[Rfam]
RNA sequence: AUACUUAUCUGACAGGGGAGAUACCUUGAACAUGAAGGAGGUUUUCCCAAGCUGAGGCUCAUACAUUGCACUCUGGGUGUGCUCACCCCUGUGAUUUCCCCAAAUGUGAAAAACUUGACUGCAUAAUUUGUGGUAGUGGGAGAGUGUGUUUGUGCCUACUCCUG
Numbered sequence: 001a002u003a004c005u006u007a008u009c010u011g012a013c014a015g016g017g018g019a020g021a022u023a024c025c026u027u028g029a030a031c032a033u034g035a036a037g038g039a040g041g042u043u044u045u046c047c048c049a050a051g052c053u054g055a056g057g058c059u060c061a062u063a064c065a066u067u068g069c070a071c072u073c074u075g076g077g078u079g080u081g082c083u084c085a086c087c088c089c090u091g092u093g094a095u096u097u098c099c100c101c102a103a104a105u106g107u108g109a110a111a112a113a114c115u116u117g118a119c120u121g122c123a124u125a126a127u128u129u130g131u132g133g134u135a136g137u138g139g140g141a142g143a144g145u146g147u148g149u150u151u152g153u154g155c156c157u158a159c160u161c162c163u164g
Stems, first nucleotide, its partner, number of pairs: 013121003016048006023042005049090001051088001054086001056083003060079003064075001092117003095113001096111002100108001138163005146155003